Overview
The record is a 201-nucleotide sequence from Medicago truncatula, which matches "MIR2619 microRNA precursor family" in Rfam. The source organism's lineage runs through Eukaryota, Streptophyta, Spermatophyta, Trifolieae and Medicago.

Nucleotides: 201
Base pairs, nucleotide, nucleotide: 001201002200004198005197006196008194012190013189014188015187016186017185020182021181022180023179024178025177026176027175028174029173030172031171032170033169034168035167036166037165039163040162041161042160043159044158045157072130073129075127076126077125078124079123080122081121082120
Number, partner (000 for none) and nucleotide at each position: 001201a002200a003000a004198c005197a006196a007000a008194u009000c010000c011000c012190u013189a014188u015187g016186u017185a018000c019000c020182g021181g022180a023179u024178c025177u026176u027175u028174g029173c030172c031171a032170g033169u034168u035167u036166u037165g038000a039163c040162c041161c042160c043159c044158a045157a046000g047000g048000u049000c050000a051000c052000u053000u054000u055000u056000g057000a058000c059000u060000u061000a062000g063000u064000c065000u066000u067000c068000g069000c070000u071000g072130a073129u074000g075127u076126g077125g078124c079123a080122u081121c082120c083000a084000u085000a086000a087000u088000g089000g090000u091000u092000g093000a094000c095000a096000u097000g098000u099000g100000g101000c102000a103000c104000c105000u106000c107000a108000c109000u110000a111000a112000a113000g114000g115000g116000a117000u118000g119000u120082g121081g122080g123079u124078g125077c126076c127075a128000c129073g130072u131000c132000a133000g134000c135000g136000a137000a138000g139000a140000c141000u142000a143000a144000g145000u146000c147000a148000a149000a150000a151000g152000u153000g154000g155000c156000c157045u158044u159043g160042g161041g162040g163039g164000c165037c166036a167035a168034a169033a170032c171031u172030g173029g174028c175027a176026a177025a178024g179023a180022u181021c182020c183000a184000a185017u186016a187015c188014a189013u190012a191000g192000g193000g194008g195000g196006u197005u198004g199000u200002u201001u
The match comes from Rfam's covariance-model search (188 bits).